[Rfam]
RNA sequence: UACAGCAGCGCGUGGCAAGGAUACUGCGAUGCGUCAUGUUGCAUCGUAUCACAGUUCUUUGUCACCCUUUGCAUCACG
Dot-bracket structure: ....((((...((((((((((.((((.((((((...........)))))).))))))))))))))...))))......
The record is a 78-nucleotide sequence from Ascaris suum, which matches "mir-43_2 microRNA precursor family" in Rfam. The organism belongs to Ascaris, within Eukaryota.